This 129-nucleotide RNA sequence from Neogale vison belongs to the Rfam family "Small nucleolar RNA SNORA70". The literature on the family includes a 2000 paper in IUBMB Life by Charette and Gray, "Pseudouridine in RNA: what, where, how, and why". About the family: snoRNA U70 seems to be exclusive to mammals and is a member of the H/ACA class of snoRNA which contain H (ANANNA) and ACA box motifs. H/ACA box snoRNAs are involved in the conversion of uridines to pseudouridines (5-ribosyluracil) a constituent of structural RNAs (transfer, ribosomal, small nuclear, and small nucleolar). The family's consensus secondary structure was predicted with PFOLD. It is annotated as an H/ACA-box small nucleolar RNA. Its family is annotated with nucleolus and RNA processing in the Gene Ontology.
RNA sequence: CUCCAGCCAUUAAGCUGACUGUGCUUUUUCUCCAUAGGGGUCCAGUAUGCCACGGCUGCAAACAGUAGCCUCCUUGGCUAUGCAGCCUGUUGAUUGUAUGGGUUGCCCUAAGGGACCUUGGAGACAGUC
Dot-bracket structure: ...((............((((..((((.........))))..)))).))..........................((.....((((((...........))))))..........))............
Numbered sequence: 001c002u003c004c005a006g007c008c009a010u011u012a013a014g015c016u017g018a019c020u021g022u023g024c025u026u027u028u029u030c031u032c033c034a035u036a037g038g039g040g041u042c043c044a045g046u047a048u049g050c051c052a053c054g055g056c057u058g059c060a061a062a063c064a065g066u067a068g069c070c071u072c073c074u075u076g077g078c079u080a081u082g083c084a085g086c087c088u089g090u091u092g093a094u095u096g097u098a099u100g101g102g103u104u105g106c107c108c109u110a111a112g113g114g115a116c117c118u119u120g121g122a123g124a125c126a127g128u129c
Stems, first nucleotide, its partner, number of pairs: 004049002018046004024040004076117002083105006